[Rfam]
A member of the RNA family "Plant signal recognition particle RNA" from Vanilla planifolia, 302 nucleotides long. The match comes from Rfam's covariance-model search (197 bits).
RNA sequence: GCAGAGUUCGGUUGCGCGAACUUGUAACCCAUGGGGGGGCUGGAUGGUGCGGAUUGUGCGGUCAAACCUUGUGGUUGAUCGGUAUUGGCUAAAAUUCUGGCUUGUCUGGGCCAAGUUGUGGAGUCGAUUUGUGCGGUCCAUGCGGAGGCGUGGACCGCGCUUGUCCUACAGUGGAGGACACCGCGUGAGGCUGGUUGACAGAGCAGCGAUAACCUCCCGCUCUCAACGGUGGACAGAUAACAGGCCGGUGUUGAUACCGAUCAAUUAGCCACAGGGUUGACUGUAACUAGACCGCCAUCUUU
Numbered sequence: 001g002c003a004g005a006g007u008u009c010g011g012u013u014g015c016g017c018g019a020a021c022u023u024g025u026a027a028c029c030c031a032u033g034g035g036g037g038g039g040c041u042g043g044a045u046g047g048u049g050c051g052g053a054u055u056g057u058g059c060g061g062u063c064a065a066a067c068c069u070u071g072u073g074g075u076u077g078a079u080c081g082g083u084a085u086u087g088g089c090u091a092a093a094a095u096u097c098u099g100g101c102u103u104g105u106c107u108g109g110g111c112c113a114a115g116u117u118g119u120g121g122a123g124u125c126g127a128u129u130u131g132u133g134c135g136g137u138c139c140a141u142g143c144g145g146a147g148g149c150g151u152g153g154a155c156c157g158c159g160c161u162u163g164u165c166c167u168a169c170a171g172u173g174g175a176g177g178a179c180a181c182c183g184c185g186u187g188a189g190g191c192u193g194g195u196u197g198a199c200a201g202a203g204c205a206g207c208g209a210u211a212a213c214c215u216c217c218c219g220c221u222c223u224c225a226a227c228g229g230u231g232g233a234c235a236g237a238u239a240a241c242a243g244g245c246c247g248g249u250g251u252u253g254a255u256a257c258c259g260a261u262c263a264a265u266u267a268g269c270c271a272c273a274g275g276g277u278u279g280a281c282u283g284u285a286a287c288u289a290g291a292c293c294g295c296c297a298u299c300u301u302u
Stems, first nucleotide, its partner, number of pairs: 001040002004023007028037003043302002046299004050294003054290003057286001060282006067276010077262008086253003090250002097248009106236002109234001111232003115227004120223005126165003131160013166171001173217005184208003191201003